The family of this 152-nucleotide RNA is "cold-seep-1 RNA". It is annotated as a small RNA.

[Rfam]
RNA sequence: GGUCCCCGCCCAGGCUGCAUUGAUUUGCGAUGGCCGCGUGAGGGGGGCUUCACCUGCGGGUGAGGCCAUCCUAUCCACUUCUGGUGCCGGACGCCGGUACUACUGAGACGGUCGCACUGCGGCGCCGCUCGAUGCCGGAGGUCUGGGGACGA
Numbered sequence: 001g002g003u004c005c006c007c008g009c010c011c012a013g014g015c016u017g018c019a020u021u022g023a024u025u026u027g028c029g030a031u032g033g034c035c036g037c038g039u040g041a042g043g044g045g046g047g048c049u050u051c052a053c054c055u056g057c058g059g060g061u062g063a064g065g066c067c068a069u070c071c072u073a074u075c076c077a078c079u080u081c082u083g084g085u086g087c088c089g090g091a092c093g094c095c096g097g098u099a100c101u102a103c104u105g106a107g108a109c110g111g112u113c114g115c116a117c118u119g120c121g122g123c124g125c126c127g128c129u130c131g132a133u134g135c136c137g138g139a140g141g142u143c144u145g146g147g148g149a150c151g152a
Stems, first nucleotide, its partner, number of pairs: 002150007014037002017035001019031003046067003050063005094138006105130003113124003